RNA: c-di-GMP-I riboswitch aptamer
RNA sequence: UUCUGAUAAAGGCAAAACAUCUGAAAAGGUGUGACGCAAAGCCAUGGGUCUACAGCAGGAAAGACACUGCCAUGAUCGCCAGGUUGCCGGA
Number, nucleotide and partner (000 for none) at each position: 001u000002u000003c000004u000005g000006a000007u000008a000009a000010a000011g000012g037013c036014a000015a000016a000017a032018c031019a030020u029021c028022u027023g000024a000025a000026a000027a022028g021029g020030u019031g018032u017033g000034a000035c000036g013037c012038a000039a000040a085041g084042c083043c082044a000045u081046g080047g079048g076049u075050c074051u000052a000053c000054a000055g070056c069057a068058g067059g000060a000061a000062a000063g000064a000065c000066a000067c058068u057069g056070c055071c000072a000073u000074g050075a049076u048077c000078g000079c047080c046081a045082g043083g042084u041085u040086g000087c000088c000089g000090g000091a000